[Rfam]
RNA sequence: AGUUUAUCCAGGAAAGCUAUCGGCCGAGUACUUAGAACCGAGCUGCCCUCGGAUAGACUCU
Numbered sequence: 001a002g003u004u005u006a007u008c009c010a011g012g013a014a015a016g017c018u019a020u021c022g023g024c025c026g027a028g029u030a031c032u033u034a035g036a037a038c039c040g041a042g043c044u045g046c047c048c049u050c051g052g053a054u055a056g057a058c059u060c061u
Stems, first nucleotide, its partner, number of pairs: 001059009010049003015044003020041004025035001
The record is a 61-nucleotide RNA from Caenorhabditis remanei, which matches "mir-1822 microRNA precursor family" in Rfam. NCBI's taxonomy places the organism under Eukaryota, Protostomia, Rhabditoidea, Peloderinae, Caenorhabditis. Rfam's curators put it in the seed alignment.